RNA sequence: GUGCCUAAAGCCCCUUAUCAUUCUCUUGUCCGGUGUAAAUGGUCGUCUCGACUGGACGGAGAACUGAUAAGGGCCCGAGGGUUA
Numbered sequence: 001g002u003g004c005c006u007a008a009a010g011c012c013c014c015u016u017a018u019c020a021u022u023c024u025c026u027u028g029u030c031c032g033g034u035g036u037a038a039a040u041g042g043u044c045g046u047c048u049c050g051a052c053u054g055g056a057c058g059g060a061g062a063a064c065u066g067a068u069a070a071g072g073g074c075c076c077g078a079g080g081g082u083u084a
Base pairs, nucleotide, nucleotide: 012073013072014071015070016069017068018067019066020065021063022062023061024060025059026058029055030054
Record summary
Shown here is an 84-nucleotide RNA from Diachasma alloeum, a member of the family "mir-184 microRNA precursor family". A reference for the family is Chen et al. (2005), "The developmental miRNA profiles of zebrafish as determined by small RNA cloning", Genes Dev.